The record is an 83-nucleotide sequence from Bacillus mesophilum, which matches "c-di-GMP-I riboswitch aptamer" in Rfam. Gene Ontology term of the family: cyclic-di-GMP binding. NCBI's taxonomy places the organism under Bacteria, Bacillati, Bacilli, Caryophanales, Bacillus.
[Rfam]
RNA sequence: UACUCAUAACGGCAAAUCAAUUGAAAGAUUGAGACGCAAAGCCACAGGUCUAAGGCGCAAGCUAUGACAGCUGGGUUACCGUA
Numbered sequence: 001u002a003c004u005c006a007u008a009a010c011g012g013c014a015a016a017u018c019a020a021u022u023g024a025a026a027g028a029u030u031g032a033g034a035c036g037c038a039a040a041g042c043c044a045c046a047g048g049u050c051u052a053a054g055g056c057g058c059a060a061g062c063u064a065u066g067a068c069a070g071c072u073g074g075g076u077u078a079c080c081g082u083a
Base pairs, nucleotide, nucleotide: 012037013036017032018031019030020029021028022027040077041076042075043074045073046072047071048068049067050066055062056061